A member of the RNA family "Bacterial RNase P class A" from Oceanicola sp. 22II-s10i, 395 nucleotides long.
RNA sequence: GCGGAGGGCCGGAUGGCCGCGGGCCCCUAGGGGUCCGAGGAAAGUCCGGACUCCACAAGGCAACGGUGCCGGGUAACGCCCGGCGGGGGCAACCCCAGGGACAGCGCCACAGAGAACAGACCGCCGCGCCUGUCGCGGCAAGGGUGAAACGGUGCGGUAAGAGCGCACCGGGGGACGGGCAACCGGACCCGCAUGGCAAGCCCCACCGGGAGCAAUGCCGAAUAGGGAUCCCGCGCGGGCCGGUCGCGUCAGCGAUACCGCCGCAGGGCCGCCUUGGCCCAGGGGAUCCGGGUUGGCAGCUUGAGGCGCCGGGGCAACCCGGCGUCCAGAGGAAUGGUCAUCGAACCGGGGGCGACUCCGGGGAACAGAAUCCGGCUUACAGGCCCUCCGCGCAU
Dot-bracket structure: ((((((((((((((((((.(((((((....)))))))....[[[.[[[[[((((....[[...((((((((((.....)))))(((((....)))).)((...(((((............((((((((.....))))))..)).......((((((.......))))))((((..(((....)))..))).)..)))..)))))))))))))...((((......((((((..................................(((((...]])))))...)))))).....)))).......((((((((....))))))))..........)))))))............................]]]]]]]].).))))))))))....